Record summary: A member of the RNA family "MIR854 microRNA precursor family" from Arabidopsis thaliana, 221 nucleotides long. The family has 3 seed sequences and 167 matches in Rfam 15.1. Rfam links the family to the GO terms RISC complex and miRNA-mediated post-transcriptional gene silencing. A reference for the family is Arteaga-Vazquez et al. (2006), "A family of microRNAs present in plants and animals", Plant Cell. The organism belongs to Arabidopsis, within Eukaryota.
[Rfam]
RNA sequence: UGGAUGAAGACAGAGCAGUGGAGUUCGACACUAGCAUGUAUCAUUUUGAUGAACAUGUACCUCUGGCGAGGGAGAGCAAGAGCUUGAGUGAAGCUCAUAGGAACAACAAUAAGCUGCAGAAGUGUUGCAAGAAGCAGGACAAGCGGCUCGCCAAGUGCUUUAAGACUAUCAAGUUUCUGAUAGAUUAACUGAGCUGUUCCUCUUCUACUACAGCUAUUCCA
Numbered sequence: 001u002g003g004a005u006g007a008a009g010a011c012a013g014a015g016c017a018g019u020g021g022a023g024u025u026c027g028a029c030a031c032u033a034g035c036a037u038g039u040a041u042c043a044u045u046u047u048g049a050u051g052a053a054c055a056u057g058u059a060c061c062u063c064u065g066g067c068g069a070g071g072g073a074g075a076g077c078a079a080g081a082g083c084u085u086g087a088g089u090g091a092a093g094c095u096c097a098u099a100g101g102a103a104c105a106a107c108a109a110u111a112a113g114c115u116g117c118a119g120a121a122g123u124g125u126u127g128c129a130a131g132a133a134g135c136a137g138g139a140c141a142a143g144c145g146g147c148u149c150g151c152c153a154a155g156u157g158c159u160u161u162a163a164g165a166c167u168a169u170c171a172a173g174u175u176u177c178u179g180a181u182a183g184a185u186u187a188a189c190u191g192a193g194c195u196g197u198u199c200c201u202c203u204u205c206u207a208c209u210a211c212a213g214c215u216a217u218u219c220c221a
Stems, first nucleotide, its partner, number of pairs: 001221004013208001014206002017203002020200005
Dot-bracket structure: ((((........(((.((.(((((...........................................................................................................................................................................))))).)).)).).........))))